[Rfam]
RNA sequence: GCGGAUACGUCCGCACGGGAUGUGGCCUAUAAUGGCUGAACCACAAA
Numbered sequence: 001g002c003g004g005a006u007a008c009g010u011c012c013g014c015a016c017g018g019g020a021u022g023u024g025g026c027c028u029a030u031a032a033u034g035g036c037u038g039a040a041c042c043a044c045a046a047a
Stems, first nucleotide, its partner, number of pairs: 001014005017042002024037004
eL15-Euryarchaeota ribosomal protein leader: a 47-nucleotide RNA sequence from a Candidatus Thorarchaeota archaeon. The match comes from Rfam's covariance-model search (52 bits). The literature on the family includes a 2020 paper in BMC Microbiol by Eckert and Weinberg, "Discovery of 20 novel ribosomal leader candidates in bacteria and archaea". NCBI's taxonomy places the organism under Archaea, Promethearchaeati, Candidatus Thorarchaeota. The family's RNA type in Rfam is cis-regulatory leader.